A member of the RNA family "Plastid-psbA-3 3UTR RNA" from Chaenomeles japonica, 57 nucleotides long. Plastid psbA-3 is a non-coding RNA (ncRNA) present in plastids. It was identified in inverted repeat sequences in the 3 prime untranslate region (3UTR) of photosystem II quinone-binding protein (psbA). NCBI's taxonomy places the organism under Eukaryota, Streptophytina, Rosales, Rosaceae, Chaenomeles.
Nucleotides: 057
Base pairs, nucleotide, nucleotide: 001054002053003052004051005050006049007048008047009046010045011044012043013042014041019036020035021034022033023032024031
Number, partner (000 for none) and nucleotide at each position: 001054a002053a003052a004051g005050g006049a007048g008047u009046a010045a011044u012043a013042a014041c015000a016000a017000a018000u019036u020035u021034c022033u023032u024031g025000u026000u027000a028000u029000a030000u031024c032023a033022a034021g035020a036019g037000g038000u039000u040000u041014g042013u043012u044011a045010u046009u047008g048007c049006u050005c051004c052003u053002u054001u055000a056000c057000u